[Rfam]
RNA sequence: CGAGCAAGCCGGGCAGCCGCGGGCACAGUCUGAAAAGGCGUGUCUGAGGAAAGUCCGGGCUCCAUAGGGCAAGGAUAACGGCUAACGGCCGCCGGGGGCGACCCCAGGGAUCGUGCAACAGAGAAAUACCGCCGUGCUUUUUUGCACGGUAAGGGUGGAAAGGCGAGGUAAGAGCUCACCGGCAUGCAGGAGACUGCAUGGCCCUGUAAACCCUAUCCGGAGCAACACCGUGGAGGAACAUUUGCGCUUGCCCGGCGCGUUCCGCGGAGGUGGCGUGAGCCGUAUGGCAACGUACGGCCAAGAUAGAUGGCUGCUCAAGACAGGACCCGGCUUAUAGACUUGGUCGCUUU
Numbered sequence: 001c002g003a004g005c006a007a008g009c010c011g012g013g014c015a016g017c018c019g020c021g022g023g024c025a026c027a028g029u030c031u032g033a034a035a036a037g038g039c040g041u042g043u044c045u046g047a048g049g050a051a052a053g054u055c056c057g058g059g060c061u062c063c064a065u066a067g068g069g070c071a072a073g074g075a076u077a078a079c080g081g082c083u084a085a086c087g088g089c090c091g092c093c094g095g096g097g098g099c100g101a102c103c104c105c106a107g108g109g110a111u112c113g114u115g116c117a118a119c120a121g122a123g124a125a126a127u128a129c130c131g132c133c134g135u136g137c138u139u140u141u142u143u144g145c146a147c148g149g150u151a152a153g154g155g156u157g158g159a160a161a162g163g164c165g166a167g168g169u170a171a172g173a174g175c176u177c178a179c180c181g182g183c184a185u186g187c188a189g190g191a192g193a194c195u196g197c198a199u200g201g202c203c204c205u206g207u208a209a210a211c212c213c214u215a216u217c218c219g220g221a222g223c224a225a226c227a228c229c230g231u232g233g234a235g236g237a238a239c240a241u242u243u244g245c246g247c248u249u250g251c252c253c254g255g256c257g258c259g260u261u262c263c264g265c266g267g268a269g270g271u272g273g274c275g276u277g278a279g280c281c282g283u284a285u286g287g288c289a290a291c292g293u294a295c296g297g298c299c300a301a302g303a304u305a306g307a308u309g310g311c312u313g314c315u316c317a318a319g320a321c322a323g324g325a326c327c328c329g330g331c332u333u334a335u336a337g338a339c340u341u342g343g344u345c346g347c348u349u350u
Stems, first nucleotide, its partner, number of pairs: 001346003005342004010337001011335001012315007020046007051333003055330005060222004068253002073218005079091004093107001094105004108213002113211002115207003129154002131150007162180002165177003182202001183200007226272004235263004244258005279298008
Rfam assigns this 350-nucleotide RNA from Yeguia hominis to the family "Bacterial RNase P class A". Lineage of the source: Bacteria > Clostridia > Eubacteriales > Yeguiaceae > Yeguia. Its Rfam clan is "RNaseP clan". The match comes from Rfam's covariance-model search (276 bits). The literature on the family includes a 2013 paper in RNA Biol by Beauregard et al., "Identification and characterization of small RNAs in Yersinia pestis".